[Rfam]
RNA sequence: UGGCCGAACCCGCCGAGUCCCGCGACAUGCCACGCGGGAACCGGGGACCCACAUGCCGGACCUUCCAGGCUCAGUCCUGGGCGGCCCGGCCGGGGUGAAUCCGGAUCCGCACCCAGCGGACCCGAUAGGGCUGACUCCCGGCCCGAACCCGUCAGCUAACCCGGUAGGCGAUCGAGGAGAGGAGAU
Numbered sequence: 001u002g003g004c005c006g007a008a009c010c011c012g013c014c015g016a017g018u019c020c021c022g023c024g025a026c027a028u029g030c031c032a033c034g035c036g037g038g039a040a041c042c043g044g045g046g047a048c049c050c051a052c053a054u055g056c057c058g059g060a061c062c063u064u065c066c067a068g069g070c071u072c073a074g075u076c077c078u079g080g081g082c083g084g085c086c087c088g089g090c091c092g093g094g095g096u097g098a099a100u101c102c103g104g105a106u107c108c109g110c111a112c113c114c115a116g117c118g119g120a121c122c123c124g125a126u127a128g129g130g131c132u133g134a135c136u137c138c139c140g141g142c143c144c145g146a147a148c149c150c151g152u153c154a155g156c157u158a159a160c161c162c163g164g165u166a167g168g169c170g171a172u173c174g175a176g177g178a179g180a181g182g183a184g185a186u
Stems, first nucleotide, its partner, number of pairs: 011170004018039007040165006050092001093150003102124003128144004

About this RNA:
Rfam assigns this 186-nucleotide RNA sequence from Actinomadura rudentiformis to the family "c-di-AMP riboswitch aptamer (ydaO/yuaA leader)". The organism belongs to Actinomadura, within Bacteria.